[Rfam]
The family of this 258-nucleotide sequence from Pullulanibacillus camelliae is "BsrG". Its family is annotated with toxin activity and autolysis in the Gene Ontology. About the family: bsrE, bsrG and bsrH pair through intermolecular interactions with antisense sRNAs. They form type I toxin/antitoxin system that includes an mRNA encoding for a short, toxic peptide (bsrE, bsrG and bsrH) and an antitoxin that is comprised of an antisense RNA. bsrG encodes a 39-amino-acid toxin, and the 180 nucleotide antisense sRNA called SR4 acts as the antitoxin (they overlap by 123 nucleotides). SR4 interaction with the 3'UTR of bsrG RNA promotes bsrG degradation and inhibits its translation. The family's RNA type in Rfam is small RNA. The literature on the family includes a 2016 paper in J Biol Chem by Meissner et al., "In Vitro Characterization of the Type I Toxin-Antitoxin System bsrE/SR5 from Bacillus subtilis".

RNA sequence: GACAAUUGGUUUUCCAAGGGUGGUCGGCGUGCCUCGAGAGGGGGUGACGCCUCUUAUGUCCAUAUAUCAGGCCUUGACUCUCAUGAUCUCUUUCGGUCUUCUGAUCAUUGCUUUGUUGAAGGACAAAGCAAAAUAGACCGCCCUUGGGCUUUAAGGGAACGGUCCAUUCCUGCACAAUCUUGUGUUGUGAAUGACGUGUGUCGACCCUCUUUGUAGGGAACCAACUGUCCGUGGUCGCAGGUGUUCUCAGCACCUGUG
Number, nucleotide and partner (000 for none) at each position: 001g229002a228003c227004a226005a000006u000007u223008g222009g221010u000011u219012u204013u148014c147015c146016a145017a144018g143019g142020g141021u000022g138023g000024u136025c000026g000027g050028c049029g048030u000031g045032c044033c043034u042035c041036g000037a000038g000039a000040g000041g035042g034043g033044g032045u031046g000047a000048c029049g028050c027051c000052u000053c000054u000055u000056a000057u000058g000059u119060c118061c000062a116063u115064a114065u000066a000067u000068c000069a000070g000071g000072c085073c000074u000075u000076g000077a000078c000079u000080c000081u000082c000083a000084u000085g072086a000087u000088c000089u000090c000091u000092u000093u000094c000095g112096g111097u110098c000099u000100u000101c000102u000103g000104a000105u000106c000107a000108u000109u000110g097111c096112u095113u000114u064115g063116u062117u000118g060119a059120a000121g000122g000123a000124c000125a000126a000127a000128g000129c000130a000131a000132a000133a000134u000135a000136g024137a000138c022139c000140g000141c020142c019143c018144u017145u016146g015147g014148g013149c000150u000151u194152u193153a192154a000155g000156g000157g000158a000159a000160c000161g000162g000163u000164c000165c000166a000167u000168u000169c000170c000171u000172g000173c000174a000175c000176a000177a000178u000179c000180u000181u000182g000183u000184g000185u000186u000187g000188u000189g000190a000191a000192u153193g152194a151195c000196g000197u000198g000199u000200g000201u000202c000203g000204a012205c218206c217207c216208u215209c000210u000211u000212u000213g000214u000215a208216g207217g206218g205219a011220a000221c009222c008223a007224a000225c000226u004227g003228u002229c001230c000231g000232u000233g000234g000235u000236c258237g257238c256239a255240g254241g253242u252243g251244u250245u249246c000247u000248c000249a245250g244251c243252a242253c241254c240255u239256g238257u237258g236